[Rfam]
RNA: Cyano-1 RNA
Nucleotides: 070
Stems, first nucleotide, its partner, number of pairs: 019065005026058002031055003034051003
Number, partner (000 for none) and nucleotide at each position: 001000u002000g003000u004000u005000g006000u007000g008000u009000g010000a011000g012000g013000a014000g015000u016000g017000a018000a019065g020064a021063g022062c023061a024000u025000c026058u027057c028000u029000u030000c031055a032054g033053g034051g035050u036049c037000g038000a039000a040000a041000c042000a043000a044000g045000g046000a047000c048000a049036g050035a051034c052000u053033c054032c055031u056000g057027g058026a059000u060000g061023u062022g063021u064020u065019c066000c067000g068000c069000u070000u